Small nucleolar RNA SNORD97: a 179-nucleotide RNA sequence from Oryzias sinensis. The base pairs follow the family's consensus structure, which was predicted with WAR.

[Rfam]
RNA sequence: AUGCCCAGUGAUUAUAAAAAGACGCGUUAUUCUGAGGAGCAAAACCUGCUGUCUGUCUCCCAUCCUCCUGUUCUUCAUUUACUCGUCUUUCUCUCCUACCCCUUUUCUUGUUCAUCCUUAUUCUUCUCUCUGCCUCUAGCAGCAGGUCCGCUGACUGCGAUUAUGAGAUAUGAGGGCAU
Numbered sequence: 001a002u003g004c005c006c007a008g009u010g011a012u013u014a015u016a017a018a019a020a021g022a023c024g025c026g027u028u029a030u031u032c033u034g035a036g037g038a039g040c041a042a043a044a045c046c047u048g049c050u051g052u053c054u055g056u057c058u059c060c061c062a063u064c065c066u067c068c069u070g071u072u073c074u075u076c077a078u079u080u081a082c083u084c085g086u087c088u089u090u091c092u093c094u095c096c097u098a099c100c101c102c103u104u105u106u107c108u109u110g111u112u113c114a115u116c117c118u119u120a121u122u123c124u125u126c127u128c129u130c131u132g133c134c135u136c137u138a139g140c141a142g143c144a145g146g147u148c149c150g151c152u153g154a155c156u157g158c159g160a161u162u163a164u165g166a167g168a169u170a171u172g173a174g175g176g177c178a179u
Stems, first nucleotide, its partner, number of pairs: 001179006035092004
It is annotated as a C/D-box small nucleolar RNA.